[Rfam]
RNA sequence: GAAGUCUCAUCUGGCCAAAGCCGUAGCGGGCGGGCCGGGACCGAGUCUUGCGGGCGUCGUGGUAACGCGGGGUCUGAAGUGUAGACAGGGGCCAUACGGGGUGCGGGAUUGAGCCUCGAAAGGUGGAAGAUCGCGAAGGCCGAGAGGGUUCCCAGUCUCGAAGGCAGCACGUGCGUCAUCGUUAUGCGAGAUGACGUCGCUUCGCCGGGGUCGAAGGCCG
Numbered sequence: 001g002a003a004g005u006c007u008c009a010u011c012u013g014g015c016c017a018a019a020g021c022c023g024u025a026g027c028g029g030g031c032g033g034g035c036c037g038g039g040a041c042c043g044a045g046u047c048u049u050g051c052g053g054g055c056g057u058c059g060u061g062g063u064a065a066c067g068c069g070g071g072g073u074c075u076g077a078a079g080u081g082u083a084g085a086c087a088g089g090g091g092c093c094a095u096a097c098g099g100g101g102u103g104c105g106g107g108a109u110u111g112a113g114c115c116u117c118g119a120a121a122g123g124u125g126g127a128a129g130a131u132c133g134c135g136a137a138g139g140c141c142g143a144g145a146g147g148g149u150u151c152c153c154a155g156u157c158u159c160g161a162a163g164g165c166a167g168c169a170c171g172u173g174c175g176u177c178a179u180c181g182u183u184a185u186g187c188g189a190g191a192u193g194a195c196g197u198c199g200c201u202u203c204g205c206c207g208g209g210g211u212c213g214a215a216g217g218c219c220g
Stems, first nucleotide, its partner, number of pairs: 012037005020031003024189001026187002041089002045086004049081002051076005057070005110214001111212001113211006133205006139165003144159004170199002173197008
The record is a 220-nucleotide sequence from Defluviicoccus vanus, which matches "Group II catalytic intron D1-D4-6" in Rfam. Pairs were carried over by alignment from the consensus structure. A search with the family's covariance model found it, with a score of 148 bits. From the family's description: Group II introns are found in rRNA, tRNA and mRNA of organelles in fungi, plants and protists, and also in mRNA in bacteria. Rfam 15.1 lists 1,617 matches to the family in 661 species.